[Rfam]
RNA sequence: ACGGCCUUUUCGAAGGCUCGUCUGCUAGAAAAUUUUGCGCGCAGGUCCGACCAUCAACAUUCGGGCCCACUUUCCUCAGUGAAGGUGUCCCUGCGCA
Numbered sequence: 001a002c003g004g005c006c007u008u009u010u011c012g013a014a015g016g017c018u019c020g021u022c023u024g025c026u027a028g029a030a031a032a033u034u035u036u037g038c039g040c041g042c043a044g045g046u047c048c049g050a051c052c053a054u055c056a057a058c059a060u061u062c063g064g065g066c067c068c069a070c071u072u073u074c075c076u077c078a079g080u081g082a083a084g085g086u087g088u089c090c091c092u093g094c095g096c097a
Stems, first nucleotide, its partner, number of pairs: 003018005039096004044067007068087007